[Rfam]
RNA sequence: CCCGCGGCUAGACGGAAAGACCCCGUGAACCUUUACUAUAGCUUGGCACUGAACAUUGGCCCUACAUGUGUAGGAUAGGUGGGAGGCUUUGAAGUUUGAACGCUAGUUCAGAUGGAGCCGUCCUUGAAAUACCACCCUUGUAUGUCUGAUGUUCUAACGUAGGCCCCUUAUCGGGGUCGCGGACAGUGUCUGGUGGGUAGUUUGACUGGGGCGGUCUCCUCCUAAAGCGUAACGGAGGAGCACGAAGGUUGGCUAAGUACGGUCGGACAUCGUACGGUUAGUGUAAUGGUAGAAGCCAGCUUAACUGCGAGACAGACACGUCGAGCAGGUACGAAAGUAGGUCAUAGUGAUCCGGUGGUUCUGUAUGGAAGGGCCAUCGCUCAACGGAUAAAAGGUACUCCGGGGAUAACAGGCUGAUACCGCCCAAGAGUUCAUAUCGACGGCGGUGUUUGGCACCUCGAUGUCGGCUCAUCACAUCCUGGGGCUGAAGUCGGUCCCAAGGGUAUGGCUGUUCGCCAUUUAAAGUGGUACGCGAGCUGGGUUUAGAACGUCGUGAGACAGUUCGGUCCCUAUCUGCCGUGGGCGUU
Number, nucleotide and partner (000 for none) at each position: 001c583002c582003c581004g580005c579006g578007g577008c576009u000010a575011g574012a573013c000014g570015g569016a000017a000018a000019g000020a000021c000022c404023c403024c402025g401026u000027g400028a399029a396030c395031c394032u393033u392034u000035a201036c200037u199038a198039u000040a000041g000042c193043u192044u000045g190046g189047c188048a187049c000050u000051g154052a153053a152054c151055a150056u149057u148058g147059g146060c000061c144062c000063u142064a141065c140066a139067u000068g137069u000070g000071u000072a000073g000074g000075a000076u000077a000078g136079g135080u134081g133082g132083g000084a000085g119086g118087c117088u000089u000090u000091g000092a000093a000094g113095u112096u111097u110098g109099a108100a107101c106102g000103c000104u000105a000106g101107u100108u099109c098110a097111g096112a095113u094114g000115g000116a000117g087118c086119c085120g000121u000122c000123c000124u000125u000126g000127a000128a000129a000130u000131a000132c082133c081134a080135c079136c078137c068138u000139u066140g065141u064142a063143u000144g061145u000146c059147u058148g057149a056150u055151g054152u053153u052154c051155u000156a000157a000158c181159g180160u179161a000162g178163g177164c176165c175166c174167c173168u000169u000170a000171u000172c000173g167174g166175g165176g164177u163178c162179g160180c159181g158182g000183a000184c000185a000186g000187u048188g047189u046190c045191u000192g043193g042194u000195g000196g000197g000198u038199a037200g036201u035202u000203u000204g216205a215206c214207u213208g000209g000210g000211g000212c000213g207214g206215u205216c204217u239218c238219c237220u236221c235222c234223u000224a000225a000226a000227g000228c000229g000230u000231a000232a000233c000234g222235g221236a220237g219238g218239a217240g385241c000242a342243c341244g000245a000246a000247g000248g300249u299250u298251g297252g296253c295254u280255a279256a000257g275258u274259a273260c272261g271262g270263u000264c000265g000266g000267a000268c000269a000270u262271c261272g260273u259274a258275c257276g000277g000278u000279u255280a254281g290282u289283g000284u000285a000286a000287u000288g000289g282290u281291a000292g000293a000294a000295g253296c252297c251298a250299g249300c248301u000302u000303a000304a000305c328306u327307g326308c325309g000310a000311g322312a321313c320314a000315g000316a000317c000318a000319c000320g313321u312322c311323g000324a000325g308326c307327a306328g305329g000330u339331a338332c337333g000334a000335a000336a000337g332338u331339a330340g000341g243342u242343c000344a000345u000346a000347g000348u000349g000350a000351u000352c000353c379354g378355g377356u376357g375358g374359u373360u000361c372362u371363g000364u000365a000366u000367g000368g000369a000370a000371g362372g361373g359374c358375c357376a356377u355378c354379g353380c000381u000382c000383a000384a000385c240386g000387g000388a000389u000390a000391a000392a033393a032394g031395g030396u029397a000398c000399u028400c027401c025402g024403g023404g022405g000406a000407u000408a000409a000410c000411a000412g000413g454414c453415u452416g000417a451418u448419a447420c446421c445422g444423c443424c442425c000426a000427a000428g438429a437430g000431u000432u000433c000434a000435u000436a000437u429438c428439g000440a000441c000442g424443g423444c422445g421446g420447u419448g418449u000450u000451u417452g415453g414454c413455a000456c000457c000458u000459c000460g000461a000462u000463g000464u000465c540466g538467g537468c536469u535470c532471a529472u528473c527474a526475c525476a000477u000478c503479c502480u000481g498482g497483g496484g495485c494486u493487g000488a000489a000490g000491u000492c000493g486494g485495u484496c483497c482498c481499a000500a000501g000502g479503g478504u000505a519506u518507g517508g516509c515510u000511g000512u000513u000514c000515g509516c508517c507518a506519u505520u000521u000522a000523a000524a000525g475526u474527g473528g472529u471530a000531c000532g470533c000534g000535a469536g468537c467538u466539g000540g465541g000542u000543u000544u000545a000546g564547a563548a562549c561550g559551u558552c557553g000554u000555g000556a000557g552558a551559c550560a000561g549562u548563u547564c546565g000566g000567u000568c000569c015570c014571u000572a000573u012574c011575u010576g008577c007578c006579g005580u004581g003582g002583g001584c000585g000586u000587u000